[Rfam]
RNA: Purine riboswitch aptamer
RNA sequence: CACAUUUUUAAUAUGUUCGUGUGUAUAAUCCUGGUAAUAUGGUCCAGAAGUCUCUACCGAAUCGCCCUAAAAAGAUUCGACUACACCGAUUACACUUUGCUA
Dot-bracket structure: ................(((.(((((...(.((((.........)))).)........((((((..........))))))..)))))))).............
Numbered sequence: 001c002a003c004a005u006u007u008u009u010a011a012u013a014u015g016u017u018c019g020u021g022u023g024u025a026u027a028a029u030c031c032u033g034g035u036a037a038u039a040u041g042g043u044c045c046a047g048a049a050g051u052c053u054c055u056a057c058c059g060a061a062u063c064g065c066c067c068u069a070a071a072a073a074g075a076u077u078c079g080a081c082u083a084c085a086c087c088g089a090u091u092a093c094a095c096u097u098u099g100c101u102a
Stems, first nucleotide, its partner, number of pairs: 017089003021086005029049001031047004058079006